[Rfam]
RNA: Connexin-43 internal ribosome entry site (IRES)
RNA sequence: CACUUUUACAAGGUAUCAGCACUUUUCUUUCAUUGGGGGAAGGCAUGAGGAAAGUACCAAACAGCUGCAGACUUUGAAACUUUAAAUAGACACGUCUGAGAGCCUGAGUCCUCCUCUUCUUUGACUGCAGCCUCCAAGGAGCCUCACCAAUUUGGCAUGCUUUCAUUAAGCGAAAGAGAGGUGACCAGACAUG
Number, nucleotide and partner (000 for none) at each position: 001c000002a000003c019004u018005u000006u000007u015008a014009c013010a000011a000012g000013g009014u008015a007016u000017c000018a004019g003020c000021a000022c000023u000024u000025u000026u000027c000028u000029u141030u140031c139032a000033u137034u136035g135036g134037g133038g132039g131040a000041a126042g125043g000044c000045a000046u000047g121048a120049g000050g119051a000052a118053a117054g116055u000056a000057c000058c000059a000060a000061a000062c000063a000064g000065c000066u000067g000068c000069a097070g096071a095072c094073u000074u092075u000076g000077a000078a000079a000080c000081u000082u000083u000084a000085a000086a000087u000088a000089g000090a000091c000092a074093c000094g072095u071096c070097u069098g113099a112100g111101a000102g109103c000104c000105u000106g000107a000108g000109u102110c000111c100112u099113c098114c000115u000116c054117u053118u052119c050120u048121u047122u000123g000124a000125c042126u041127g000128c000129a000130g000131c039132c038133u037134c036135c035136a034137a033138g000139g031140a030141g029142c000143c000144u000145c000146a000147c000148c000149a000150a000151u189152u188153u187154g186155g185156c000157a000158u183159g182160c181161u176162u175163u174164c172165a000166u000167u000168a000169a000170g000171c000172g164173a000174a163175a162176g161177a000178g000179a000180g000181g160182u159183g158184a000185c155186c154187a153188g152189a151190c000191a000192u000193g000